[Rfam]
RNA sequence: CCCCCGUGAGGAAACCCCCGCGUGUCUGACCCCCCAGCGCCGCCAGAACCUGCCCAAGGUUGAACCCACUGGUGACACUGGGGGGAGGGGAGGACGAGCGGUCCCGAGCGGACGGUCUGAGGGGG
Numbered sequence: 001c002c003c004c005c006g007u008g009a010g011g012a013a014a015c016c017c018c019c020g021c022g023u024g025u026c027u028g029a030c031c032c033c034c035c036a037g038c039g040c041c042g043c044c045a046g047a048a049c050c051u052g053c054c055c056a057a058g059g060u061u062g063a064a065c066c067c068a069c070u071g072g073u074g075a076c077a078c079u080g081g082g083g084g085g086a087g088g089g090g091a092g093g094a095c096g097a098g099c100g101g102u103c104c105c106g107a108g109c110g111g112a113c114g115g116u117c118u119g120a121g122g123g124g125g
Base pairs, nucleotide, nucleotide: 001124002123003122004121
Rfam assigns this 125-nucleotide RNA from Falco tinnunculus to the family "Small nucleolar RNA SNORD22". The family has 49 seed sequences and 1,081 matches in Rfam 15.1. Lineage of the source: Eukaryota > Eumetazoa > Bilateria > Teleostomi > Falco. The family's RNA type in Rfam is C/D-box small nucleolar RNA. A search with the family's covariance model found it, with a score of 54 bits.